[Rfam]
RNA sequence: CCCGUCAGUCGCUCAGUAGUCAGUGUAGGUUCUGUCUUUACAAUCAGCAGCUACAUCUGACUACUGGGUGUCUGGUGGCAUCU
Numbered sequence: 001c002c003c004g005u006c007a008g009u010c011g012c013u014c015a016g017u018a019g020u021c022a023g024u025g026u027a028g029g030u031u032c033u034g035u036c037u038u039u040a041c042a043a044u045c046a047g048c049a050g051c052u053a054c055a056u057c058u059g060a061c062u063a064c065u066g067g068g069u070g071u072c073u074g075g076u077g078g079c080a081u082c083u
Stems, first nucleotide, its partner, number of pairs: 013067006020060003023056006032050004
A member of the RNA family "mir-221 microRNA precursor family" from Crypturellus soui, 83 nucleotides long.
The source organism's lineage runs through Eukaryota, Euteleostomi, Dipnotetrapodomorpha, Theropoda and Crypturellus.
For this family Rfam cites "MicroRNA profile of Marek's disease virus-transformed T-cell line MSB-1: predominance of virus-encoded microRNAs" (Yao et al., J Virol, 2008).
It scores 82 bits against the family's covariance model.
The base pairs follow the family's consensus structure, which was predicted with RNAalifold.